Annotation: Shown here is a 56-nucleotide sequence from Triplophysa tibetana, a member of the family "U7 small nuclear RNA". About the family: Animal histone pre-mRNAs are spliced by a different mechanism than nuclear pre-mRNAs and self-splicing introns. This processing involves the U7 snRNP, which contains only one RNA species: U7. The 5' end of U7 RNA is thought to base-pair to a conserved spacer element downstream of the cleavage site in histone pre-mRNA. This family contains a number of annotated U7 pseudogenes. It scores 50 bits against the family's covariance model. The source organism's lineage runs through Eukaryota, Eumetazoa, Deuterostomia, Vertebrata and Triplophysa. Pairs were carried over by alignment from the consensus structure, which was predicted with PFOLD.

RNA sequence: UAGAAUCUGUCUCUUUUAGUAUUUGUCCAGCAGGUUUCCUUUAAAAGGAAGCCCAA
Numbered sequence: 001u002a003g004a005a006u007c008u009g010u011c012u013c014u015u016u017u018a019g020u021a022u023u024u025g026u027c028c029a030g031c032a033g034g035u036u037u038c039c040u041u042u043a044a045a046a047g048g049a050a051g052c053c054c055a056a
Base pairs, nucleotide, nucleotide: 033053034052035051036050037049038048039047040046